MIR6152 microRNA precursor family: a 76-nucleotide sequence from Nicotiana attenuata. The family's consensus secondary structure was predicted with RNAalifold.
RNA sequence: UGGACAUAUUAUUGUAUUCGACUGUAUUGUGCUGUUUUUAAAACGGAAAGUGAAUCAAUUAACAUAAUAGACUCCU
Numbered sequence: 001u002g003g004a005c006a007u008a009u010u011a012u013u014g015u016a017u018u019c020g021a022c023u024g025u026a027u028u029g030u031g032c033u034g035u036u037u038u039u040a041a042a043a044c045g046g047a048a049a050g051u052g053a054a055u056c057a058a059u060u061a062a063c064a065u066a067a068u069a070g071a072c073u074c075c076u
Base pairs, nucleotide, nucleotide: 002075003074004073009070010069011068012067013066014065015064017062018061020060021059023057024056026055027054028053029051030050033045034044035043
The family has 2 seed sequences and 5,807 matches in Rfam 15.1.